[Rfam]
RNA sequence: ACAGGCGAAGCCGAAAACCUGUAGAAACGAGUAGGUA
Numbered sequence: 001a002c003a004g005g006c007g008a009a010g011c012c013g014a015a016a017a018c019c020u021g022u023a024g025a026a027a028c029g030a031g032u033a034g035g036u037a
Stems, first nucleotide, its partner, number of pairs: 002021004010036003
DUF805b RNA: a 37-nucleotide RNA sequence. The base pairs follow the family's consensus structure, which is taken from published work. It is one of the family's seed sequences.